[Rfam]
RNA sequence: CGGAAGUGCCUUGUCGAUCGUGCCUGAUGUGGUCCUAGACAAACCCCAUCAUCGCAGUUCGCAAGGCACUUCUUCGUUUCUGGGUGAACCAUCCACGGGCAUCAAG
Numbered sequence: 001c002g003g004a005a006g007u008g009c010c011u012u013g014u015c016g017a018u019c020g021u022g023c024c025u026g027a028u029g030u031g032g033u034c035c036u037a038g039a040c041a042a043a044c045c046c047c048a049u050c051a052u053c054g055c056a057g058u059u060c061g062c063a064a065g066g067c068a069c070u071u072c073u074u075c076g077u078u079u080c081u082g083g084g085u086g087a088a089c090c091a092u093c094c095a096c097g098g099g100c101a102u103c104a105a106g
Stems, first nucleotide, its partner, number of pairs: 002073012015061003019057001021056003025051004032044002
RNA: Actinobacteria sRNA Ms_IGR-7
Organism: Streptomyces bingchenggensis